[Rfam]
RNA sequence: AUUUUAUUGAAUAAGAUAGGCUUAAAAGCCUUGAUACGAAGCACUUUGGAGGGUUAUUUCAAGGUGCUUUUCUUGAUUUU
Numbered sequence: 001a002u003u004u005u006a007u008u009g010a011a012u013a014a015g016a017u018a019g020g021c022u023u024a025a026a027a028g029c030c031u032u033g034a035u036a037c038g039a040a041g042c043a044c045u046u047u048g049g050a051g052g053g054u055u056a057u058u059u060c061a062a063g064g065u066g067c068u069u070u071u072c073u074u075g076a077u078u079u080u
Base pairs, nucleotide, nucleotide: 019080020079031076034073039069040068041067042066043065044064045063048060049059050058051057